[Rfam]
RNA sequence: CCCCUUGAACUUCCCCGCGCCGCCCACUACCUUGGCUGUGUCAGCGCAAGCUGACUACGCUCGUAGACCGACCAUUGACUACCUUUGCAGGACGGGGGUGCGAUACCCCCCGCCUCCACCAAUCAACGGAUCAUUGCCGUGGCUUGGGGGCGAAACAGGAUCGACUGGGGGGGAAAGGUGACUCGUGCGGGCCGGUGAGCUACCACCGUUAUCGGUGCAAGCAUGAUAGUUGCCAAUGACAACCGUGCUCCGGUGGCUCUGGCUGCGUAAGCAGUUCGAGUACCGAAAACUAAGUCCUGUCCUCUAGCCAGGCCAGGCGGGGUUCGCAGGUACCUGGCAACAGAAACCUGCACU
Numbered sequence: 001c002c003c004c005u006u007g008a009a010c011u012u013c014c015c016c017g018c019g020c021c022g023c024c025c026a027c028u029a030c031c032u033u034g035g036c037u038g039u040g041u042c043a044g045c046g047c048a049a050g051c052u053g054a055c056u057a058c059g060c061u062c063g064u065a066g067a068c069c070g071a072c073c074a075u076u077g078a079c080u081a082c083c084u085u086u087g088c089a090g091g092a093c094g095g096g097g098g099u100g101c102g103a104u105a106c107c108c109c110c111c112g113c114c115u116c117c118a119c120c121a122a123u124c125a126a127c128g129g130a131u132c133a134u135u136g137c138c139g140u141g142g143c144u145u146g147g148g149g150g151c152g153a154a155a156c157a158g159g160a161u162c163g164a165c166u167g168g169g170g171g172g173g174a175a176a177g178g179u180g181a182c183u184c185g186u187g188c189g190g191g192c193c194g195g196u197g198a199g200c201u202a203c204c205a206c207c208g209u210u211a212u213c214g215g216u217g218c219a220a221g222c223a224u225g226a227u228a229g230u231u232g233c234c235a236a237u238g239a240c241a242a243c244c245g246u247g248c249u250c251c252g253g254u255g256g257c258u259c260u261g262g263c264u265g266c267g268u269a270a271g272c273a274g275u276u277c278g279a280g281u282a283c284c285g286a287a288a289a290c291u292a293a294g295u296c297c298u299g300u301c302c303u304c305u306a307g308c309c310a311g312g313c314c315a316g317g318c319g320g321g322g323u324u325c326g327c328a329g330g331u332a333c334c335u336g337g338c339a340a341c342a343g344a345a346a347c348c349u350g351c352a353c354u
Stems, first nucleotide, its partner, number of pairs: 040055005059192005069185003073180003084170003088167003094110005111152007193208004199218002202216003320335004326351006
Rfam assigns this 354-nucleotide sequence from Paenirhodobacter enshiensis to the family "Alphaproteobacteria transfer-messenger RNA". The match comes from Rfam's covariance-model search (233 bits). Its Rfam clan is "tRNA clan". It is annotated as a non-coding RNA gene. Gene Ontology term of the family: RNA catabolic process.